[Rfam]
RNA: MIR821 microRNA precursor family
Organism: Oryza barthii
RNA sequence: GAUUUCAACUGAAAAAGUCAUAAACAACAAAGUUGUAUAACUCAUUAAGAUCUAUAACUUUUAUUUUGGUCAUUUCUUCAUCCGACAAAGUGAUAGUAACAUUGUUCAUAAAAUUUACAUCUCUCUCUUAUAAAACUAUAAGAGAGAUGUAAAUUUUAUGAACAAUGUUACUAUCACUUUGUCAGAUGAAGAAAUGACCAAAAUAAAAGUUGUAUGUCUUGAUGAGUUAUACAACUUUUAUGUUCAUGACUUUUUCAGCUGAAUUU
Numbered sequence: 001g002a003u004u005u006c007a008a009c010u011g012a013a014a015a016a017g018u019c020a021u022a023a024a025c026a027a028c029a030a031a032g033u034u035g036u037a038u039a040a041c042u043c044a045u046u047a048a049g050a051u052c053u054a055u056a057a058c059u060u061u062u063a064u065u066u067u068g069g070u071c072a073u074u075u076c077u078u079c080a081u082c083c084g085a086c087a088a089a090g091u092g093a094u095a096g097u098a099a100c101a102u103u104g105u106u107c108a109u110a111a112a113a114u115u116u117a118c119a120u121c122u123c124u125c126u127c128u129u130a131u132a133a134a135a136c137u138a139u140a141a142g143a144g145a146g147a148u149g150u151a152a153a154u155u156u157u158a159u160g161a162a163c164a165a166u167g168u169u170a171c172u173a174u175c176a177c178u179u180u181g182u183c184a185g186a187u188g189a190a191g192a193a194a195u196g197a198c199c200a201a202a203a204u205a206a207a208a209g210u211u212g213u214a215u216g217u218c219u220u221g222a223u224g225a226g227u228u229a230u231a232c233a234a235c236u237u238u239u240a241u242g243u244u245c246a247u248g249a250c251u252u253u254u255u256c257a258g259c260u261g262a263a264u265u266u
Base pairs, nucleotide, nucleotide: 014253015252016251017250018249019248020247021246023244024243026241030237031236032235033234034233035232036231037230038229039228040227041226042225044223045222046221047220048219049218050217051216053214055212056211057210058209059208060207061206062205063204064203065202066201067200069198070197071196072195073194074193075192077190078189079188080187081186084183085182086181087180088179089178090177091176092175094173095172096171097170098169099168101166102165103164104163105162106161107160108159109158110157111156112155114153115152117150118149119148120147121146122145131135